[Rfam]
RNA sequence: UGGCGCUUGAGGCUUUCUGCCUCAUGGCGAAAAGGUGGUUUGUAUCUUGUCGUGUGGCAGAAAGCAGAAAGCCCCGUAGUUAAUUUUCAUUAACCCACGAGGCGAUCCCAAUGCUUCAACAACAUCAGGAUAGACUUUUACCGCCCUUUACGCAAUACCCUGUAUUUUCAAG
Numbered sequence: 001u002g003g004c005g006c007u008u009g010a011g012g013c014u015u016u017c018u019g020c021c022u023c024a025u026g027g028c029g030a031a032a033a034g035g036u037g038g039u040u041u042g043u044a045u046c047u048u049g050u051c052g053u054g055u056g057g058c059a060g061a062a063a064g065c066a067g068a069a070a071g072c073c074c075c076g077u078a079g080u081u082a083a084u085u086u087u088c089a090u091u092a093a094c095c096c097a098c099g100a101g102g103c104g105a106u107c108c109c110a111a112u113g114c115u116u117c118a119a120c121a122a123c124a125u126c127a128g129g130a131u132a133g134a135c136u137u138u139u140a141c142c143g144c145c146c147u148u149u150a151c152g153c154a155a156u157a158c159c160c161u162g163u164a165u166u167u168u169c170a171a172g
Stems, first nucleotide, its partner, number of pairs: 002074002005072004012065010023054001026051005076098002079094006099137003103133001105131004111125003142162002
Record summary
The record is a 172-nucleotide RNA, which matches "sok antitoxin (CssrC)" in Rfam. A search with the family's covariance model found it, with a score of 81 bits. About the family: Also identified in Shigella as CssrC. By type it is an antitoxin RNA. A reference for the family is Kawano et al. (2007), "An antisense RNA controls synthesis of an SOS-induced toxin evolved from an antitoxin", Mol Microbiol.